[Rfam]
Rfam assigns this 56-nucleotide sequence from Scleropages formosus to the family "Antizyme RNA frameshifting stimulation element".
Rfam describes the family as follows. This family represents a structural element which is found in antizyme mRNA and is known to promote frameshifting.
Pairs were carried over by alignment from the consensus structure, which is taken from published work.
It is annotated as a frameshift element.
RNA sequence: UGAUGCCCCUCACCCACUGCUGAAGAUCCCCGGUGGGCGAGGGUCAGGCAGGGAUC
Dot-bracket structure: ......(((((.((((((......[[[[[[.)))))).))))).......]]]]]]